[Rfam]
Nucleotides: 134
Base pairs, nucleotide, nucleotide: 001057002056003055004054005053015044016043017042018041020039022037023036024035025034070126071125072124073123074122089108090107091106092105093104094103095102
Number, partner (000 for none) and nucleotide at each position: 001057c002056c003055u004054c005053c006000c007000g008000u009000u010000c011000u012000u013000g014000g015044c016043g017042g018041g019000c020039c021000c022037c023036g024035g025034c026000c027000g028000u029000g030000c031000c032000g033000u034025g035024c036023c037022g038000g039020g040000c041018u042017c043016c044015g045000u046000g047000a048000u049000g050000u051000g052000c053005g054004g055003a056002g057001g058000g059000a060000g061000a062000g063000c064000a065000g066000c067000g068000a069000c070126c071125g072124g073123c074122g075000c076000g077000a078000a079000g080000u081000c082000u083000u084000c085000g086000g087000u088000g089108c090107c091106g092105g093104c094103g095102g096000u097000c098000g099000c100000g101000u102095c103094c104093g105092c106091c107090g108089g109000u110000c111000c112000c113000a114000c115000c116000c117000u118000c119000a120000c121000a122074c123073g124072c125071c126070g127000g128000g129000a130000c131000a132000a133000g134000g